[Rfam]
Small nucleolar RNA R44/J54/Z268 family: an 86-nucleotide sequence from Malus domestica.

RNA sequence: UGUGCAAGUGACGAUAAAACAGACAGGGACAUCAGAACUCCUUCUGGAGGAUGGUGAAUUGUCGAUGGGAAUCUCUCUGAUGCGCU
Numbered sequence: 001u002g003u004g005c006a007a008g009u010g011a012c013g014a015u016a017a018a019a020c021a022g023a024c025a026g027g028g029a030c031a032u033c034a035g036a037a038c039u040c041c042u043u044c045u046g047g048a049g050g051a052u053g054g055u056g057a058a059u060u061g062u063c064g065a066u067g068g069g070a071a072u073c074u075c076u077c078u079g080a081u082g083c084g085c086u
Stems, first nucleotide, its partner, number of pairs: 002085005
It scores 78 bits against the family's covariance model. Gene Ontology terms of the family: nucleolus and RNA processing. The family's consensus secondary structure was predicted with PFOLD. The family is grouped with related families in Rfam's "SNORD74 clan".